A member of the RNA family "FMN riboswitch aptamer (RFN element)" from Veronia nyctiphanis, 153 nucleotides long. The base pairs follow the family's consensus structure, which is taken from published work. A search with the family's covariance model found it, with a score of 112 bits.
RNA sequence: UCUGAUUUCUCAGGGCGGGGUGGAAUUCCCCACCGGCGGUAAGACAAAUCUUUUUUGUUCAGCCCGCGAGCGCCUGCAUGUUGUUUUGUAGGGUCAGCAGAUCUGGUGUGAAUCCAGAGCCGACGGUCAUAGUCCGGAUGGGAGAGAAUCAGU
Numbered sequence: 001u002c003u004g005a006u007u008u009c010u011c012a013g014g015g016c017g018g019g020g021u022g023g024a025a026u027u028c029c030c031c032a033c034c035g036g037c038g039g040u041a042a043g044a045c046a047a048a049u050c051u052u053u054u055u056u057g058u059u060c061a062g063c064c065c066g067c068g069a070g071c072g073c074c075u076g077c078a079u080g081u082u083g084u085u086u087u088g089u090a091g092g093g094u095c096a097g098c099a100g101a102u103c104u105g106g107u108g109u110g111a112a113u114c115c116a117g118a119g120c121c122g123a124c125g126g127u128c129a130u131a132g133u134c135c136g137g138a139u140g141g142g143a144g145a146g147a148a149u150c151a152g153u
Stems, first nucleotide, its partner, number of pairs: 003151004008147004018030003032133002034122002036067004062120002070098002102118005124136003